RNA sequence: UUUUCAUUUUCGCUGAGUUUCCGUCAGGGAAACGGGGGAACCGCAAGGUGGCCGUCCAGUUUUUACAAUGAGACAAAGGUCACAUUUUCAGGGGUGAAUCACGGUUAAGGUUAUGCAGUUUGAACCGGCCGUGUAGGGCGACUCUCAAGUCCGAAUCCGUCAGCUAACCUCGUAAGCGUUAAGAGAGAGGUAAC
Numbered sequence: 001u002u003u004u005c006a007u008u009u010u011c012g013c014u015g016a017g018u019u020u021c022c023g024u025c026a027g028g029g030a031a032a033c034g035g036g037g038g039a040a041c042c043g044c045a046a047g048g049u050g051g052c053c054g055u056c057c058a059g060u061u062u063u064u065a066c067a068a069u070g071a072g073a074c075a076a077a078g079g080u081c082a083c084a085u086u087u088u089c090a091g092g093g094g095u096g097a098a099u100c101a102c103g104g105u106u107a108a109g110g111u112u113a114u115g116c117a118g119u120u121u122g123a124a125c126c127g128g129c130c131g132u133g134u135a136g137g138g139c140g141a142c143u144c145u146c147a148a149g150u151c152c153g154a155a156u157c158c159g160u161c162a163g164c165u166a167a168c169c170u171c172g173u174a175a176g177c178g179u180u181a182a183g184a185g186a187g188a189g190g191u192a193a194c
Base pairs, nucleotide, nucleotide: 011178012177013176014175018031019030020029032173033172034171035170036169037168042091092158093157094156100133101132102131103130104129105128106127136152137151138150139149
c-di-AMP riboswitch aptamer (ydaO/yuaA leader): a 194-nucleotide RNA from Paenibacillus piri.
A search with the family's covariance model found it, with a score of 88 bits.
About the family: This family represents a conserved RNA structure found upstream of the ydaO and yuaA genes in Bacillus subtilis and related genes in other bacteria.